[Rfam]
RNA: RT-2 RNA
RNA sequence: GACGGCCAGACCGAGUAGGCGAAAGCCGAAAGCAGCGCCAUUGAGGAAGGAAGGCAUGACCGUCGGCCGCGAGGCCGUAAAUACGCACCCCGCGAGCGAUGGCGGACGCUUCUUGCAUGGCCGUGGCCUUAGGCGCUCGACCCGGUUUCAUGCCAUCGUCUCACGCGGCUGCUGCACGAACGCCAUUGAAAAGGCCGUGCGGGGUGCCCUCCUAUGAAUUCGGAUGA
Dot-bracket structure: ...(((............((....))..........)))........................((((......)))).......((((((((..((...((((....((.....))..(((((.(...............).)))))....))))....))...(((((...(........)...........))))).))))))))....................